c-di-GMP-I-GGC riboswitch aptamer: a 93-nucleotide RNA from Lentibacillus halodurans.
The source organism's lineage runs through Bacteria, Bacillati, Bacilli, Bacillaceae and Lentibacillus.
A search with the family's covariance model found it, with a score of 66 bits.
[Rfam]
RNA sequence: GAAGAAAAAGGCAAACUAUUCGAAAGGGUAGGACGCAAAGCCAAGGAUCUAAAAUGCCGGUUACAGGACAUCAUGACCGCCUGGCUGCCAAAU
Numbered sequence: 001g002a003a004g005a006a007a008a009a010g011g012c013a014a015a016c017u018a019u020u021c022g023a024a025a026g027g028g029u030a031g032g033a034c035g036c037a038a039a040g041c042c043a044a045g046g047a048u049c050u051a052a053a054a055u056g057c058c059g060g061u062u063a064c065a066g067g068a069c070a071u072c073a074u075g076a077c078c079g080c081c082u083g084g085c086u087g088c089c090a091a092a093u
Stems, first nucleotide, its partner, number of pairs: 001093001004089001011036002016031006034079001039086004044082003048076002